[Rfam]
RNA sequence: GUAAGUUAUGAGUUUCGUUCCCGAUAGGAUAAACAGGGAACAGUUACGUCAAAUUCUGAUGAUGUAACGGUUCUUUUUGUUUAGAGGCCUUGUAACCGGAAUUUAUUAGAUGGGGGAAAUCUUUUAUG
Numbered sequence: 001g002u003a004a005g006u007u008a009u010g011a012g013u014u015u016c017g018u019u020c021c022c023g024a025u026a027g028g029a030u031a032a033a034c035a036g037g038g039a040a041c042a043g044u045u046a047c048g049u050c051a052a053a054u055u056c057u058g059a060u061g062a063u064g065u066a067a068c069g070g071u072u073c074u075u076u077u078u079g080u081u082u083a084g085a086g087g088c089c090u091u092g093u094a095a096c097c098g099g100a101a102u103u104u105a106u107u108a109g110a111u112g113g114g115g116g117a118a119a120u121c122u123u124u125u126a127u128g
Stems, first nucleotide, its partner, number of pairs: 018118005026090003030083010096113002
This 128-nucleotide sequence from Furfurilactobacillus rossiae belongs to the Rfam family "SAM-III riboswitch aptamer (SMK box)". It scores 50 bits against the family's covariance model.